This 71-nucleotide RNA sequence from Hymenochirus boettgeri belongs to the Rfam family "mir-29 microRNA precursor family". This family represents the microRNA (miRNA) precursors mir-29.
RNA sequence: GCAUGACCGAUUUCUCUUGGUGUUCAGAGGCUCAACUUUUUUAAUCUAGCACCAUUUGAAAUCGGUUAUGA
Numbered sequence: 001g002c003a004u005g006a007c008c009g010a011u012u013u014c015u016c017u018u019g020g021u022g023u024u025c026a027g028a029g030g031c032u033c034a035a036c037u038u039u040u041u042u043a044a045u046c047u048a049g050c051a052c053c054a055u056u057u058g059a060a061a062u063c064g065g066u067u068a069u070g071a
Stems, first nucleotide, its partner, number of pairs: 002070003005066001007065008018054005026047003

A reference for the family is Ambros (2001), "microRNAs: tiny regulators with great potential", Cell. The family's consensus secondary structure was predicted with PFOLD.